[Rfam]
RNA: Small nucleolar RNA R16
RNA sequence: UGUGGCAAGUGAUGCAGAAGUAAAUAUAUGCUACACUGAAACAUAUAUGUGGACUAAAAACUCCGCUUAUUAUCUGAUGCCUCG
Numbered sequence: 001u002g003u004g005g006c007a008a009g010u011g012a013u014g015c016a017g018a019a020g021u022a023a024a025u026a027u028a029u030g031c032u033a034c035a036c037u038g039a040a041a042c043a044u045a046u047a048u049g050u051g052g053a054c055u056a057a058a059a060a061c062u063c064c065g066c067u068u069a070u071u072a073u074c075u076g077a078u079g080c081c082u083c084g
Stems, first nucleotide, its partner, number of pairs: 004081004